[Rfam]
RNA sequence: CGAACGUAAUGAUGAUUGUUUAAUUCUUCCGAUUUUGUUCAUGAAUGGAAUCGAAAACCUCCUACUCAUUCUGA
Numbered sequence: 001c002g003a004a005c006g007u008a009a010u011g012a013u014g015a016u017u018g019u020u021u022a023a024u025u026c027u028u029c030c031g032a033u034u035u036u037g038u039u040c041a042u043g044a045a046u047g048g049a050a051u052c053g054a055a056a057a058c059c060u061c062c063u064a065c066u067c068a069u070u071c072u073g074a
Stems, first nucleotide, its partner, number of pairs: 006069002009066001027049002
Small nucleolar RNA Z105: a 74-nucleotide RNA from Mikania micrantha. The family has 11 seed sequences and 621 matches in Rfam 15.1. Rfam links the family to the GO terms RNA processing and nucleolus. The family's consensus secondary structure was predicted with CMfinder. It is annotated as a C/D-box small nucleolar RNA.